[Rfam]
This 145-nucleotide RNA from Drosophila albomicans belongs to the Rfam family "Small nucleolar RNA psi28S-1192". Lineage of the source: Eukaryota > Metazoa > Ecdysozoa > Pancrustacea > Drosophila.

RNA sequence: CUUAUGUCCAGUCUAAUUCUAUGUCAUGUCACUUGGAUAUUGGCGUAGACUCGCUUUUGGACAAUAGAAAUUCAAUGUCUUUUAUUAUCCUUGUGCUUGUUGUGCAACUCCUCGGCUUGCACACGAGAAACGUAGAAGAACAAUA
Number, nucleotide and partner (000 for none) at each position: 001c000002u000003u000004a000005u063006g062007u061008c060009c059010a058011g000012u000013c000014u000015a000016a000017u000018u000019c048020u047021a046022u045023g044024u043025c042026a041027u039028g038029u037030c036031a000032c000033u000034u000035g000036g030037a029038u028039a027040u000041u026042g025043g024044c023045g022046u021047a020048g019049a000050c000051u000052c000053g000054c000055u000056u000057u000058u010059g009060g008061a007062c006063a005064a000065u000066a000067g000068a000069a000070a000071u000072u000073c000074a000075a000076u000077g000078u139079c138080u137081u136082u135083u134084a133085u132086u000087a000088u000089c000090c127091u126092u125093g124094u123095g122096c000097u000098u000099g000100u000101u000102g000103u000104g000105c000106a000107a000108c000109u000110c000111c000112u000113c000114g000115g000116c000117u000118u000119g000120c000121a000122c095123a094124c093125g092126a091127g090128a000129a000130a000131c000132g085133u084134a083135g082136a081137a080138g079139a078140a000141c000142a000143a000144u000145a000

Rfam 15.1 lists 81 matches to the family in 36 species. psi28S-1192 is a member of the H/ACA class of snoRNA. This family is responsible for guiding the modification of uridine 1192 to pseudouridine in Drosophila 28S rRNA. A search with the family's covariance model found it, with a score of 121 bits.